[Rfam]
RNA: mir-190 microRNA precursor family
Organism: Saccoglossus kowalevskii
RNA sequence: UUCGCCAUGUGAUAUGUUUGUUAUUUGGUUGGUGGUUUCACCAAAUCAACCAGUAUCAGACAUAUAUCCAUGGAGUG
Numbered sequence: 001u002u003c004g005c006c007a008u009g010u011g012a013u014a015u016g017u018u019u020g021u022u023a024u025u026u027g028g029u030u031g032g033u034g035g036u037u038u039c040a041c042c043a044a045a046u047c048a049a050c051c052a053g054u055a056u057c058a059g060a061c062a063u064a065u066a067u068c069c070a071u072g073g074a075g076u077g
Stems, first nucleotide, its partner, number of pairs: 005073005012065009022055003027051005